[Rfam]
RNA sequence: CUUCAGCGUGGACGGGUGCGACCGGUGGCGCGCUGGGGAAAUCGGACUACCACGGGGUAGGUUGAAAUAGUCCGUGCGGUGGCGAAGAUAGAGCCGCGACCUCGAAGUCUGUCGGAG
Numbered sequence: 001c002u003u004c005a006g007c008g009u010g011g012a013c014g015g016g017u018g019c020g021a022c023c024g025g026u027g028g029c030g031c032g033c034u035g036g037g038g039a040a041a042u043c044g045g046a047c048u049a050c051c052a053c054g055g056g057g058u059a060g061g062u063u064g065a066a067a068u069a070g071u072c073c074g075u076g077c078g079g080u081g082g083c084g085a086a087g088a089u090a091g092a093g094c095c096g097c098g099a100c101c102u103c104g105a106a107g108u109c110u111g112u113c114g115g116a117g
Stems, first nucleotide, its partner, number of pairs: 001038010025053004044073006059102004075098006087113006
Rfam assigns this 117-nucleotide RNA sequence from Caballeronia novacaledonica to the family "Betaproteobacteria-1 RNA". Taxonomically the source falls in Caballeronia (Bacteria, Pseudomonadota, Betaproteobacteria, Burkholderiaceae). The family's consensus secondary structure is taken from published work.